A member of the RNA family "MIR8565 microRNA precursor family" from Amborella trichopoda, 153 nucleotides long. Gene Ontology terms of the family: RISC complex and miRNA-mediated post-transcriptional gene silencing. Taxonomically the source falls in Amborella (Eukaryota, Streptophytina, Euphyllophyta, Amborellaceae). The family's consensus secondary structure was predicted with RNAalifold.
[Rfam]
RNA sequence: CCUACACCCAUGUGUGUAGGACCUCAAAGGAUCACCAUUAAAUUCGGCACAGAUCUUUAGAAAGUCAUCACAUGGGUGUGGGACUUGAAUUUUUUAGAGAUCUGUGUCAAAUUUAAUGGUGAUCCUUUGGGUUCCUACACACAUGGGUGUGGG
Number, nucleotide and partner (000 for none) at each position: 001c000002c152003u151004a150005c149006a148007c147008c146009c145010a144011u143012g142013u141014g000015u139016g138017u137018a136019g135020g134021a133022c000023c131024u130025c129026a128027a127028a126029g000030g124031a123032u122033c000034a120035c119036c118037a117038u116039u115040a114041a113042a112043u111044u110045c000046g108047g107048c106049a105050c104051a103052g102053a101054u100055c099056u098057u097058u096059a095060g094061a093062a092063a091064g090065u088066c087067a086068u081069c080070a079071c078072a077073u000074g000075g000076g000077u072078g071079u070080g069081g068082g000083a000084c000085u000086u067087g066088a065089a000090u064091u063092u062093u061094u060095u059096a058097g057098a056099g055100a054101u053102c052103u051104g050105u049106g048107u047108c046109a000110a044111a043112u042113u041114u040115a039116a038117u037118g036119g035120u034121g000122a032123u031124c030125c000126u028127u027128u026129g025130g024131g023132u000133u021134c020135c019136u018137a017138c016139a015140c000141a013142c012143a011144u010145g009146g008147g007148u006149g005150u004151g003152g002153g000